[Rfam]
RNA sequence: UCAGGAUGAGGUAGUAAGUUGUAUUGUUGUGGGGGUGUUUUAUUUCCCCAAAUUAGGAGAUAACUAUACAGCUUACUGCCUUCCCUGC
Numbered sequence: 001u002c003a004g005g006a007u008g009a010g011g012u013a014g015u016a017a018g019u020u021g022u023a024u025u026g027u028u029g030u031g032g033g034g035g036u037g038u039u040u041u042a043u044u045u046c047c048c049c050a051a052a053u054u055a056g057g058a059g060a061u062a063a064c065u066a067u068a069c070a071g072c073u074u075a076c077u078g079c080c081u082u083c084c085c086u087g088c
Stems, first nucleotide, its partner, number of pairs: 002087004008082017026064002032049004053058001
About this RNA:
The record is an 88-nucleotide RNA from Xenopus laevis, which matches "let-7 microRNA precursor family" in Rfam. The family is grouped with related families in Rfam's "let-7 microRNA precursor clan". A search with the family's covariance model found it, with a score of 78 bits. For this family Rfam cites "Control of developmental timing in animals" (Rougvie, Nat Rev Genet, 2001). Rfam describes the family as follows. This family represents the microRNAs (miRNA) let-7 and mir-98. let-7 was identified from a study of developmental timing in C. elegans, and was later shown to be part of a much larger class of non-coding RNAs termed miRNAs. Taxonomically the source falls in Xenopus (Eukaryota, Eumetazoa, Teleostomi, Pipidae). Pairs were carried over by alignment from the consensus structure, which was predicted with RNAalifold.